[Rfam]
RNA sequence: GGGGCCGUUUUGGAUUUGACAGGGUGGCGCUGAGUAUGUUAGCAUGCAGUGCGUUGUACGGAGAGCACUUAAAAGAGAACGUUCAAAACAAUAAUUGGCGAAAAUAACUACGCCUUAGCUGCUUAAUUUAGAAUUAAAUAGCUUUUGUCUCGCUAACUGCUGCAUUGUUAGGUUAGUAAUAGAGGCAUCGAAAUAACAGCGCUAGCGAUUGUAAGGUACGGUACAAUGGCGAAACAAAGUACCUAAGGAGAAAGGUUAGGUCGGUUUCCAGCCCGCCAGAUCCCGACAACUAAUUGGAAAAUAAGCAUGUAGAAGGUGUAAUUUAUCACACAACUGGACAAGGGUUCGAACCCCUUCGGCUCCACAA
Numbered sequence: 001g002g003g004g005c006c007g008u009u010u011u012g013g014a015u016u017u018g019a020c021a022g023g024g025u026g027g028c029g030c031u032g033a034g035u036a037u038g039u040u041a042g043c044a045u046g047c048a049g050u051g052c053g054u055u056g057u058a059c060g061g062a063g064a065g066c067a068c069u070u071a072a073a074a075g076a077g078a079a080c081g082u083u084c085a086a087a088a089c090a091a092u093a094a095u096u097g098g099c100g101a102a103a104a105u106a107a108c109u110a111c112g113c114c115u116u117a118g119c120u121g122c123u124u125a126a127u128u129u130a131g132a133a134u135u136a137a138a139u140a141g142c143u144u145u146u147g148u149c150u151c152g153c154u155a156a157c158u159g160c161u162g163c164a165u166u167g168u169u170a171g172g173u174u175a176g177u178a179a180u181a182g183a184g185g186c187a188u189c190g191a192a193a194u195a196a197c198a199g200c201g202c203u204a205g206c207g208a209u210u211g212u213a214a215g216g217u218a219c220g221g222u223a224c225a226a227u228g229g230c231g232a233a234a235c236a237a238a239g240u241a242c243c244u245a246a247g248g249a250g251a252a253a254g255g256u257u258a259g260g261u262c263g264g265u266u267u268c269c270a271g272c273c274c275g276c277c278a279g280a281u282c283c284c285g286a287c288a289a290c291u292a293a294u295u296g297g298a299a300a301a302u303a304a305g306c307a308u309g310u311a312g313a314a315g316g317u318g319u320a321a322u323u324u325a326u327c328a329c330a331c332a333a334c335u336g337g338a339c340a341a342g343g344g345u346u347c348g349a350a351c352c353c354c355u356u357c358g359g360c361u362c363c364a365c366a367a
Stems, first nucleotide, its partner, number of pairs: 001363007020336003024331003031325004035320006043309005048069005055085002058082003119141003146187006152177007162202002165199004205230002208227006215243005247284002250281001254277003259273003265300006340356005
Shown here is a 367-nucleotide RNA sequence from Pedobacter sp. Hv1, a member of the family "transfer-messenger RNA".
It scores 127 bits against the family's covariance model.
The family's consensus secondary structure is taken from published work.
For this family Rfam cites "tmRDB (tmRNA database)" (Zwieb et al., Nucleic Acids Res, 2003).
From the family's description: Bacterial tmRNA, also known as 10Sa RNA or SsrA, is named for its dual tRNA and mRNA-like properties.
Its family is annotated with RNA catabolic process in the Gene Ontology.
The source organism's lineage runs through Bacteria, Pseudomonadati, Sphingobacteriales, Sphingobacteriaceae and Pedobacter.